[Rfam]
RNA sequence: UGCGAUGAGUCGAGGAAAACCAGGCAAUCAUUGAUUGUUCCGCUAAAGCGGCUAGUGGUAAGAAUCGAAAGGGGACACAGAUGCUACCGGAUUGUAGCGUGUCUGGCUGUUAGUAUUGUGGAGUAC
Numbered sequence: 001u002g003c004g005a006u007g008a009g010u011c012g013a014g015g016a017a018a019a020c021c022a023g024g025c026a027a028u029c030a031u032u033g034a035u036u037g038u039u040c041c042g043c044u045a046a047a048g049c050g051g052c053u054a055g056u057g058g059u060a061a062g063a064a065u066c067g068a069a070a071g072g073g074g075a076c077a078c079a080g081a082u083g084c085u086a087c088c089g090g091a092u093u094g095u096a097g098c099g100u101g102u103c104u105g106g107c108u109g110u111u112a113g114u115a116u117u118g119u120g121g122a123g124u125a126c
Stems, first nucleotide, its partner, number of pairs: 019059004023039006040051004074103005083098005113126005
This 126-nucleotide RNA from Ligilactobacillus agilis belongs to the Rfam family "Enterococcus sRNA 68 (Lacto-3 RNA)". Pairs were carried over by alignment from the consensus structure, which is taken from published work. The literature on the family includes a 2015 paper in RNA by Innocenti et al., "Whole-genome mapping of 5' RNA ends in bacteria by tagged sequencing: a comprehensive view in Enterococcus faecalis". Rfam classes the family as a small RNA.